[Rfam]
The family of this 89-nucleotide RNA from Enterococcus hirae is "RNA anti-toxin A". A reference for the family is Fozo et al. (2010), "Abundance of type I toxin-antitoxin systems in bacteria: searches for new candidates and discovery of novel families", Nucleic Acids Res. Its family is annotated with negative regulation of translation and mRNA binding in the Gene Ontology.
RNA sequence: UAAUGAUAAUGAAAAAGGAGCUAUGCGUCAACAUAGCCCCUAUGUAGAACCGUUAAAAAGACGGUGACUGUUAUAAUACGGAUUUAACC
Numbered sequence: 001u002a003a004u005g006a007u008a009a010u011g012a013a014a015a016a017g018g019a020g021c022u023a024u025g026c027g028u029c030a031a032c033a034u035a036g037c038c039c040c041u042a043u044g045u046a047g048a049a050c051c052g053u054u055a056a057a058a059a060g061a062c063g064g065u066g067a068c069u070g071u072u073a074u075a076a077u078a079c080g081g082a083u084u085u086a087a088c089c
Base pairs, nucleotide, nucleotide: 022035023034024033025032049065050064051063052062053061054060